[Rfam]
RNA sequence: CUUCGACGAAGGAUAAGAAUAAGACCUUAAUUCUAGGAG
Numbered sequence: 001c002u003u004c005g006a007c008g009a010a011g012g013a014u015a016a017g018a019a020u021a022a023g024a025c026c027u028u029a030a031u032u033c034u035a036g037g038a039g
Stems, first nucleotide, its partner, number of pairs: 001039004006034001008033001009028004
Dot-bracket structure: ((((.(.(((((............))))....)).))))
A member of the RNA family "S4-Flavobacteria ribosomal protein leader", 39 nucleotides long. The family's consensus secondary structure is taken from published work. Clan: Ribosomal Protein S4 Leader clan.